[Rfam]
Potassium channel RNA editing signal: a 114-nucleotide RNA from Geotrypetes seraphini.

RNA sequence: CUGGGUUAUGGAGACAUGUACCCCCAAACCUGGUCUGGUAUGUUAGUGGGGGCACUGUGUGCACUGGCUGGGGUAUUGACUAUUGCCAUGCCAGUCCCUGUCAUUGUGAACAAU
Dot-bracket structure: .(.(..(((((.((((.(.((...............((((.........(...........)...........))))................)).).)))).)))))..).).
The base pairs follow the family's consensus structure, which is taken from published work. It is annotated as a cis-regulatory element.